[Rfam]
RNA sequence: GGCAGAAAAAGGCAAACUCAUUGAAAAAUGGGGACGCAAAGUCACAGGUCUAAAGUAUUAAUAGAAAAUCACUUUCCUUUAAGACUACAUAAUGAAAGACUUCUAACGUGAAAUGGAAUGAAUAUUAAUACGAUGGCGGCUGGAUUGCCUGG
Numbered sequence: 001g002g003c004a005g006a007a008a009a010a011g012g013c014a015a016a017c018u019c020a021u022u023g024a025a026a027a028a029u030g031g032g033g034a035c036g037c038a039a040a041g042u043c044a045c046a047g048g049u050c051u052a053a054a055g056u057a058u059u060a061a062u063a064g065a066a067a068a069u070c071a072c073u074u075u076c077c078u079u080u081a082a083g084a085c086u087a088c089a090u091a092a093u094g095a096a097a098g099a100c101u102u103c104u105a106a107c108g109u110g111a112a113a114u115g116g117a118a119u120g121a122a123u124a125u126u127a128a129u130a131c132g133a134u135g136g137c138g139g140c141u142g143g144a145u146u147g148c149c150u151g152g
Stems, first nucleotide, its partner, number of pairs: 012037002017032006040146004045142003048137003055131009
c-di-GMP-I riboswitch aptamer: a 152-nucleotide RNA from Rossellomorea vietnamensis. It scores 66 bits against the family's covariance model.